[Rfam]
RNA sequence: CAUGUGAGGUGGAGGUUGACGGGGGGUUUGCAAGUAUAAACCACUGCAAACUCAUCGUCAGCCUUCUCACCUUUCAUG
Numbered sequence: 001c002a003u004g005u006g007a008g009g010u011g012g013a014g015g016u017u018g019a020c021g022g023g024g025g026g027u028u029u030g031c032a033a034g035u036a037u038a039a040a041c042c043a044c045u046g047c048a049a050a051c052u053c054a055u056c057g058u059c060a061g062c063c064u065u066c067u068c069a070c071c072u073u074u075c076a077u078g
Base pairs, nucleotide, nucleotide: 001078002077003076004075006073007072008071009070010069011068012067013064014063015062016061017060018059019058020057021056022055024053025052026051027050028049029048030047031046032045
Notes
mir-6302 microRNA precursor family: a 78-nucleotide RNA sequence from Heliconius melpomene. Gene Ontology terms of the family: miRNA-mediated post-transcriptional gene silencing and RISC complex. The base pairs follow the family's consensus structure, which was predicted with RNAalifold. Rfam's curators put it in the seed alignment. Taxonomically the source falls in Heliconius (Eukaryota, Pterygota, Aparaglossata, Obtectomera).